[Rfam]
RNA sequence: GUGUGUGGAUGGUGUUCAGCACCAAGGACAGGUGUGUUUGCCUGUGUGUGGAUGGUGUUCAGCACCAAGGAC
Numbered sequence: 001g002u003g004u005g006u007g008g009a010u011g012g013u014g015u016u017c018a019g020c021a022c023c024a025a026g027g028a029c030a031g032g033u034g035u036g037u038u039u040g041c042c043u044g045u046g047u048g049u050g051g052a053u054g055g056u057g058u059u060c061a062g063c064a065c066c067a068a069g070g071a072c
Stems, first nucleotide, its partner, number of pairs: 001072002010067007018059007026047001028045007